The record is a 150-nucleotide RNA sequence from Pseudohoeflea suaedae, which matches "speF leader" in Rfam. The family's consensus secondary structure was predicted with RNAalifold. About the family: This family is a putative regulatory RNA structure that is found upstream of the speF gene encoding ornithine decarboxylase in Agrobacterium tumefaciens and other alpha-proteobacteria. On this family, see Corbino et al., Genome Biol 2005: "Evidence for a second class of S-adenosylmethionine riboswitches and other regulatory RNA motifs in alpha-proteobacteria". The source organism's lineage runs through Bacteria, Pseudomonadati, Hyphomicrobiales, Rhizobiaceae and Pseudohoeflea. Its family is annotated with regulation of gene expression in the Gene Ontology. The match comes from Rfam's covariance-model search (110 bits).

[Rfam]
RNA sequence: UGCCGGCUUUCCAACAGCCGGGGUUACUGAAGAGGCACACCUUCAUUGCCGGAAGUGCGGUCGGGAUCUCCCUCCAAACCAAGGCAGACAGAGCCGAACCAUCGCUCGUCGAGCGCUGGUUUAUCGACGCAUCCAGCGUCCACAAUCCGU
Numbered sequence: 001u002g003c004c005g006g007c008u009u010u011c012c013a014a015c016a017g018c019c020g021g022g023g024u025u026a027c028u029g030a031a032g033a034g035g036c037a038c039a040c041c042u043u044c045a046u047u048g049c050c051g052g053a054a055g056u057g058c059g060g061u062c063g064g065g066a067u068c069u070c071c072c073u074c075c076a077a078a079c080c081a082a083g084g085c086a087g088a089c090a091g092a093g094c095c096g097a098a099c100c101a102u103c104g105c106u107c108g109u110c111g112a113g114c115g116c117u118g119g120u121u122u123a124u125c126g127a128c129g130c131a132u133c134c135a136g137c138g139u140c141c142a143c144a145a146u147c148c149g150u
Base pairs, nucleotide, nucleotide: 001023003021004020005019006018007017008016034050035049036048037047057130058129059128083095084094103115104114105113106112107111